[Rfam]
Shown here is an 87-nucleotide sequence from Anaerotignum lactatifermentans, a member of the family "c-di-GMP-I riboswitch aptamer". GEMM was predicted in a large-scale screen for bacterial structured RNA regulatory elements. A reference for the family is Weinberg et al. (2007), "Identification of 22 candidate structured RNAs in bacteria using the CMfinder comparative genomics pipeline", Nucleic Acids Res. The family's consensus secondary structure is taken from published work. A search with the family's covariance model found it, with a score of 77 bits. The organism belongs to Anaerotignum lactatifermentans, within Bacteria.
RNA sequence: UGAAUCCUUUGGCAAAAUCGUUGAAAAACGAUGACGCAAAGCUAUGAGUCUACGGCAGAAAGCUGCUAUGAUCGUCAAGCUGCAAAA
Number, nucleotide and partner (000 for none) at each position: 001u000002g000003a000004a000005u000006c000007c000008u000009u000010u000011g000012g037013c036014a000015a000016a000017a032018u031019c030020g029021u028022u027023g000024a000025a000026a000027a022028a021029c020030g019031a018032u017033g000034a000035c000036g013037c012038a000039a000040a081041g080042c079043u078044a000045u077046g076047a075048g072049u071050c070051u000052a000053c000054g000055g066056c065057a064058g063059a000060a000061a000062g000063c058064u057065g056066c055067u000068a000069u000070g050071a049072u048073c000074g000075u047076c046077a045078a043079g042080c041081u040082g000083c000084a000085a000086a000087a000